[Rfam]
RNA sequence: CGACGCGUCGCGGGAGAGCCGGCUGCCAUGUGCAUCCGGCACCGAAGGAGCAAGCCUCCCCGCCAAUCUCUCAGGUUCUGUACCGCGAUGACGAG
Number, nucleotide and partner (000 for none) at each position: 001c000002g000003a000004c000005g000006c090007g089008u088009c087010g086011c085012g084013g083014g000015a000016g000017a000018g000019c039020c038021g037022g036023c000024u000025g000026c000027c000028a000029u000030g000031u000032g000033c000034a000035u000036c022037c021038g020039g019040c000041a076042c075043c074044g072045a071046a000047g000048g070049a069050g068051c000052a000053a000054g063055c062056c000057u000058c000059c000060c000061c000062g055063c054064c000065a000066a000067u000068c050069u049070c048071u045072c044073a000074g043075g042076u041077u000078c000079u000080g000081u000082a000083c013084c012085g011086c010087g009088a008089u007090g006091a000092c000093g000094a000095g000